[Rfam]
RNA sequence: UUAACCCAAAUUUGUAUGGAGCCGAAACAGCGCCCCUAGCGGCAAACGUAGUGGAGUUGUUCCGACUUCAUACAAAUUUGAGUUA
Numbered sequence: 001u002u003a004a005c006c007c008a009a010a011u012u013u014g015u016a017u018g019g020a021g022c023c024g025a026a027a028c029a030g031c032g033c034c035c036c037u038a039g040c041g042g043c044a045a046a047c048g049u050a051g052u053g054g055a056g057u058u059g060u061u062c063c064g065a066c067u068u069c070a071u072a073c074a075a076a077u078u079u080g081a082g083u084u085a
Base pairs, nucleotide, nucleotide: 008079009078010077011076012075013074014073015072016071018069020067021066023064024063026061027060028059029058034053035051039047
The record is an 85-nucleotide RNA from Bombyx mori, which matches "mir-2807 microRNA precursor family" in Rfam. For this family Rfam cites "Novel microRNAs in silkworm (Bombyx mori)" (Cai et al., Funct Integr Genomics, 2010). The family has 8 seed sequences and 5,120 matches in Rfam 15.1.